[Rfam]
RNA: Retrovirus direct repeat 1 (dr1)
RNA sequence: UGUAACGGGUAAAAGGCUUUCCUCGAGAGAAAUGGCUUUGUUUAGGCGUCUGCGGGGACUUCGGGUGUACGCGAUUAGGAUUCUCUCGAGU
Numbered sequence: 001u002g003u004a005a006c007g008g009g010u011a012a013a014a015g016g017c018u019u020u021c022c023u024c025g026a027g028a029g030a031a032a033u034g035g036c037u038u039u040g041u042u043u044a045g046g047c048g049u050c051u052g053c054g055g056g057g058a059c060u061u062c063g064g065g066u067g068u069a070c071g072c073g074a075u076u077a078g079g080a081u082u083c084u085c086u087c088g089a090g091u
Stems, first nucleotide, its partner, number of pairs: 001013001003011001024088008043077003047073002052068003